Rfam assigns this 57-nucleotide RNA sequence to the family "Actino-pnp RNA".
It is annotated as a cis-regulatory element.
[Rfam]
RNA sequence: GCUGGUCCUCGGUGGUGGCUUACGGAUGAUUGCCGUGGGCUUCGAUCGAAGAUCCAU
Numbered sequence: 001g002c003u004g005g006u007c008c009u010c011g012g013u014g015g016u017g018g019c020u021u022a023c024g025g026a027u028g029a030u031u032g033c034c035g036u037g038g039g040c041u042u043c044g045a046u047c048g049a050a051g052a053u054c055c056a057u
Stems, first nucleotide, its partner, number of pairs: 001057001004054004009049005017041009027032001